[Rfam]
RNA sequence: CCGCAGGACCCUCUACUCGGAUCGUCCGGCACGUUCCUGCCGGUGAAGGGAUGAAUUC
Number, nucleotide and partner (000 for none) at each position: 001c000002c000003g000004c000005a000006g000007g000008a000009c050010c049011c048012u047013c000014u045015a044016c000017u000018c000019g000020g000021a000022u000023c000024g000025u000026c043027c042028g041029g040030c039031a038032c000033g000034u000035u000036c000037c000038u031039g030040c029041c028042g027043g026044u015045g014046a000047a012048g011049g010050g009051a000052u000053g000054a000055a000056u000057u000058c000
Source information: The record is a 58-nucleotide RNA sequence from Nocardia terpenica, which matches "msiK RNA" in Rfam. Pairs were carried over by alignment from the consensus structure, which is taken from published work. The source organism's lineage runs through Bacteria, Bacillati, Actinomycetota, Actinomycetes and Nocardia. A search with the family's covariance model found it, with a score of 52 bits.